[Rfam]
The record is a 45-nucleotide sequence from Pluvianellus socialis, which matches "Histone 3' UTR stem-loop" in Rfam.
RNA sequence: CAAAAGGCUCUUCUCAGAGCCACCCACCGCUUCAGAAAAAAAGGG
Numbered sequence: 001c002a003a004a005a006g007g008c009u010c011u012u013c014u015c016a017g018a019g020c021c022a023c024c025c026a027c028c029g030c031u032u033c034a035g036a037a038a039a040a041a042a043g044g045g
Base pairs, nucleotide, nucleotide: 006021007020008019009018010017011016
The organism belongs to Pluvianellus, within Eukaryota. The literature on the family includes a 2014 paper in Proc Natl Acad Sci U S A by Zhang et al., "Molecular mechanisms for the regulation of histone mRNA stem-loop-binding protein by phosphorylation".